[Rfam]
RNA: mir-17 microRNA precursor family
Organism: Danio rerio
RNA sequence: GGCUUUGUGCUAAGGUGCAUCUAGUGCAGAUAGUGAAGUAGACUAGCACCUACUGCCCUAAGUGCUCCUUCUGGCACGAGGG
Dot-bracket structure: ...((....(..(((.((((.(((.((.(.(((................))).))).))).)))).)))...)....))...